Source information: A member of the RNA family "ALIL pseudoknot" from Roseateles toxinivorans, 117 nucleotides long.
[Rfam]
RNA sequence: CGCGUUUUUCGCCCAGGCGGAGCUCGACCGCCGUAUCAAGUCCUGAAGGACUUCAUCGAUCAGUACCGCCAACAGUUUGGGGUCGAGUCGAUCUGCCGGGUCUUGCAGAUCGCCCCA
Numbered sequence: 001c002g003c004g005u006u007u008u009u010c011g012c013c014c015a016g017g018c019g020g021a022g023c024u025c026g027a028c029c030g031c032c033g034u035a036u037c038a039a040g041u042c043c044u045g046a047a048g049g050a051c052u053u054c055a056u057c058g059a060u061c062a063g064u065a066c067c068g069c070c071a072a073c074a075g076u077u078u079g080g081g082g083u084c085g086a087g088u089c090g091a092u093c094u095g096c097c098g099g100g101u102c103u104u105g106c107a108g109a110u111c112g113c114c115c116c117a
Stems, first nucleotide, its partner, number of pairs: 016032005078117005089112002092109005098103001

It scores 110 bits against the family's covariance model. Pairs were carried over by alignment from the consensus structure, which is taken from published work. A reference for the family is Mazauric et al. (2008), "Apical loop-internal loop RNA pseudoknots: a new type of stimulator of -1 translational frameshifting in bacteria", J Biol Chem.